Shown here is a 118-nucleotide sequence from Dentipellis fragilis, a member of the family "U5 spliceosomal RNA". U5 RNA is a component of both types of known spliceosome. It scores 58 bits against the family's covariance model. Its family is annotated with spliceosomal tri-snRNP complex assembly and U5 snRNP in the Gene Ontology. Taxonomically the source falls in Dentipellis (Eukaryota, Agaricomycetes, Russulales, Hericiaceae). Rfam classes the family as a spliceosomal small nuclear RNA.
[Rfam]
RNA sequence: AGCAGCUGAGGACGACACAAAAAGACUACGCCCUCGCCUUUUACUAGGGCGUACCGUGUGGGCGUCCUCACUUCAAAGCUGCUUGACAAUCUUUGGGAUCGACUCUUCGCGAGUUACU
Numbered sequence: 001a002g003c004a005g006c007u008g009a010g011g012a013c014g015a016c017a018c019a020a021a022a023a024g025a026c027u028a029c030g031c032c033c034u035c036g037c038c039u040u041u042u043a044c045u046a047g048g049g050c051g052u053a054c055c056g057u058g059u060g061g062g063c064g065u066c067c068u069c070a071c072u073u074c075a076a077a078g079c080u081g082c083u084u085g086a087c088a089a090u091c092u093u094u095g096g097g098a099u100c101g102a103c104u105c106u107u108c109g110c111g112a113g114u115u116a117c118u
Stems, first nucleotide, its partner, number of pairs: 003081004009068006016060004027053008097118001101115004